[Rfam]
RNA sequence: CGGCGAGGCUUCCCUGUCCGUUAUCCAUGGGGGCACUCGAUCAUGCUGUGGGUCCUUGCGCAUUUGAACAGGGACCUUAGACGCGGGUCGUCAGGGGUAUGAUGUGAGGGCGGGUUAAAUGCCCG
Dot-bracket structure: [[[....((((((....]]]........)))))).((((((((((((..((((((((............))))))))..((((.....))))...)))))))).))))..(((((.....)))))
Numbered sequence: 001c002g003g004c005g006a007g008g009c010u011u012c013c014c015u016g017u018c019c020g021u022u023a024u025c026c027a028u029g030g031g032g033g034c035a036c037u038c039g040a041u042c043a044u045g046c047u048g049u050g051g052g053u054c055c056u057u058g059c060g061c062a063u064u065u066g067a068a069c070a071g072g073g074a075c076c077u078u079a080g081a082c083g084c085g086g087g088u089c090g091u092c093a094g095g096g097g098u099a100u101g102a103u104g105u106g107a108g109g110g111c112g113g114g115u116u117a118a119a120u121g122c123c124c125g
Stems, first nucleotide, its partner, number of pairs: 001020003008034006036108004040103008050077008080092004111125005
The family of this 125-nucleotide sequence from Neobacillus bataviensis is "epsC RNA". Rfam classes the family as a cis-regulatory element.